[Rfam]
RNA sequence: GGGGAGCAUUCAAAGUCAUUUAUGUUGCCUGAUAUACCCUUCCUACAACAAUAUAAUCUCAACUUUCCUGUUUGUUGAACUCAAGCCAUGUUCACAAGCCUCUUAACUAUGAGUCACAUA
Numbered sequence: 001g002g003g004g005a006g007c008a009u010u011c012a013a014a015g016u017c018a019u020u021u022a023u024g025u026u027g028c029c030u031g032a033u034a035u036a037c038c039c040u041u042c043c044u045a046c047a048a049c050a051a052u053a054u055a056a057u058c059u060c061a062a063c064u065u066u067c068c069u070g071u072u073u074g075u076u077g078a079a080c081u082c083a084a085g086c087c088a089u090g091u092u093c094a095c096a097a098g099c100c101u102c103u104u105a106a107c108u109a110u111g112a113g114u115c116a117c118a119u120a
Stems, first nucleotide, its partner, number of pairs: 001030003005026005058113002070099006077093001079091002081088001
Rfam assigns this 120-nucleotide RNA from Lactuca saligna to the family "Small nucleolar RNA snoR104".
For this family Rfam cites "Experimental RNomics: identification of 140 candidates for small non-messenger RNAs in the plant Arabidopsis thaliana" (Marker et al., Curr Biol, 2002).
Rfam 15.1 lists 612 matches to the family in 228 species.
The base pairs follow the family's consensus structure, which was predicted with WAR.
Rfam links the family to the GO terms nucleolus and RNA processing.
A search with the family's covariance model found it, with a score of 48 bits.